[Rfam]
RNA sequence: AUUACCUUUAAUCUGGUCCUGUGAGGCCAAAAAGGGCGGCAACUUAAUGAUUACUUUUUUGUAUGUUCAUGCCCUUUUGUCCUCUUGGAUGGAAGGGCAUUUAUU
Numbered sequence: 001a002u003u004a005c006c007u008u009u010a011a012u013c014u015g016g017u018c019c020u021g022u023g024a025g026g027c028c029a030a031a032a033a034g035g036g037c038g039g040c041a042a043c044u045u046a047a048u049g050a051u052u053a054c055u056u057u058u059u060u061g062u063a064u065g066u067u068c069a070u071g072c073c074c075u076u077u078u079g080u081c082c083u084c085u086u087g088g089a090u091g092g093a094a095g096g097g098c099a100u101u102u103a104u105u
Stems, first nucleotide, its partner, number of pairs: 005035005014029005039066003042062002046058002049055001069100014

Shown here is a 105-nucleotide RNA sequence from Heyndrickxia shackletonii, a member of the family "PyrR binding site". About the family: This family represents the PyrR binding site and terminator structure. A search with the family's covariance model found it, with a score of 54 bits. NCBI's taxonomy places the organism under Bacteria, Bacillati, Bacillota, Bacilli, Heyndrickxia. The family's RNA type in Rfam is cis-regulatory element. The base pairs follow the family's consensus structure, which is taken from published work.